[Rfam]
RNA sequence: CGGGGAAAGAAGACCCUGUUGAGCUUGACUCUAUUCUAAUUUUGUGAAGCAAGUUAGGAGGUGUAGAAUAGGUGGGAGCUUCGGCAACCGUGAAAUACCACUACUCUUAAUCUUGCUUUACUUAGGGCGUGAGGCUGUACGGCCGCAAGGCUUGCUUAUUGCAUCAAGCGUGAUUCGUUCGCGUGAACAGCGCGCCCAACACAUUUAGGAGGGGAGUUUGGCUGGGGCGGCACAUCUUCUACAAGACAACGAAGGUGUCCAAAGAUAAGCUCAGUGAGAACAGAAAUCUCACGUAGCGCAAAAGGGUAAAAGCUUGUUUGAUUUUGAUUUUCAGUGUGAGUUGAAAACGCGAAAGCGUGGCCUAUCGAUCCUUUCACGAUUCGAGAUUUGAAGCGAGAGGUGUCAGAAAAGUUACCACAGGGAUAACUGGCUUGUGGCGGCCAAGCGUUCAUAGCGACGUCGCUUUUUGAUCCUUCGAUGUCGGCUCUUCCUAUCAUUGCGAAGCAGAAUUCGCCAAGUGUCGGAUUGUUCACCCGCCAACAGGGAACGUGAGCUGGGUUUAGACCGUCGUGAGACAGGUUAGUUUUAUCCUA
Number, nucleotide and partner (000 for none) at each position: 001c000002g000003g592004g591005g590006a000007a587008a586009g000010a000011a000012g000013a000014c000015c421016c420017u419018g418019u000020u417021g416022a413023g412024c411025u410026u409027g000028a217029c216030u215031c214032u000033a000034u000035u209036c208037u207038a206039a205040u000041u203042u000043u000044g121045u120046g119047a118048a117049g116050c115051a114052a113053g112054u110055u109056a108057g107058g106059a105060g104061g000062u000063g000064u000065a000066g000067a000068a000069u000070a000071g102072g101073u100074g099075g098076g000077a000078g085079c084080u000081u000082c000083g000084g079085c078086a000087a000088c000089c000090g000091u000092g000093a000094a000095a000096u000097a000098c075099c074100a073101c072102u071103a000104c060105u059106c058107u057108u056109a055110a054111u000112c053113u052114u051115g050116c049117u048118u047119u046120a045121c044122u000123u000124a000125g197126g196127g195128c194129g193130u000131g000132a000133g000134g000135c190136u189137g188138u187139a000140c000141g000142g151143c150144c000145g000146c000147a000148a000149g000150g143151c142152u000153u000154g000155c000156u000157u000158a000159u000160u000161g000162c000163a000164u000165c000166a000167a000168g184169c183170g182171u181172g180173a000174u000175u000176c000177g000178u000179u000180c172181g171182c170183g169184u168185g000186a000187a138188c137189a136190g135191c000192g000193c129194g128195c127196c126197c125198a000199a000200c000201a000202c000203a041204u000205u039206u038207a037208g036209g035210a000211g000212g000213g000214g031215a030216g029217u028218u000219u000220g233221g231222c230223u229224g000225g000226g000227g000228c000229g223230g222231c221232a000233c220234a256235u255236c254237u253238u252239c251240u000241a000242c000243a000244a000245g000246a000247c000248a000249a000250c000251g239252a238253a237254g236255g235256u234257g000258u000259c360260c359261a000262a000263a000264g000265a317266u316267a315268a314269g313270c312271u000272c296273a000274g292275u291276g290277a289278g288279a287280a000281c000282a000283g000284a000285a000286a000287u279288c278289u277290c276291a275292c274293g000294u000295a000296g272297c000298g307299c306300a000301a000302a000303a000304g000305g000306g299307u298308a000309a000310a000311a000312g270313c269314u268315u267316g266317u265318u000319u000320g000321a000322u346323u345324u344325u343326g342327a341328u340329u339330u338331u000332c000333a000334g000335u000336g000337u000338g330339a329340g328341u327342u326343g325344a324345a323346a322347a000348c357349g356350c355351g000352a000353a000354a000355g350356c349357g348358u000359g260360g259361c000362c000363u000364a000365u000366c000367g000368a000369u000370c000371c399372u398373u397374u396375c395376a000377c000378g000379a000380u392381u391382c390383g000384a000385g000386a000387u000388u000389u000390g382391a381392a380393g000394c000395g375396a374397g373398a372399g371400g000401u000402g000403u000404c000405a000406g000407a000408a000409a026410a025411g024412u023413u022414a000415c000416c021417a020418c018419a017420g016421g015422g000423a000424u000425a000426a000427c000428u000429g000430g471431c000432u469433u000434g468435u000436g464437g463438c462439g461440g460441c459442c000443a000444a000445g455446c454447g000448u000449u000450c000451a000452u000453a000454g446455c445456g000457a000458c000459g441460u440461c439462g438463c437464u436465u000466u000467u000468u434469g432470a000471u430472c000473c000474u000475u000476c000477g000478a000479u000480g000481u000482c557483g555484g554485c553486u552487c549488u546489u545490c544491c543492u542493a000494u000495c520496a519497u000498u000499g514500c513501g512502a511503a510504g000505c000506a000507g000508a000509a000510u503511u502512c501513g500514c499515c000516a000517a000518g000519u496520g495521u000522c536523g535524g534525a000526u532527u000528g000529u000530u000531c000532a526533c000534c524535c523536g522537c000538c000539a000540a000541c000542a492543g491544g490545g489546a488547a000548c000549g487550u000551g000552a486553g485554c484555u483556g000557g482558g000559u000560u000561u000562a000563g581564a580565c579566c578567g576568u575569c574570g000571u000572g000573a000574g569575a568576c567577a000578g566579g565580u564581u563582a000583g000584u000585u000586u008587u007588a000589u000590c005591c004592u003593a000
The family of this 593-nucleotide part of an RNA from Palmaria palmata is "Eukaryotic large subunit ribosomal RNA". The sequence is in the family's curated seed alignment. For this family Rfam cites "Crystal structure of the ribosome at 5.5 A resolution" (Yusupov et al., Science, 2001).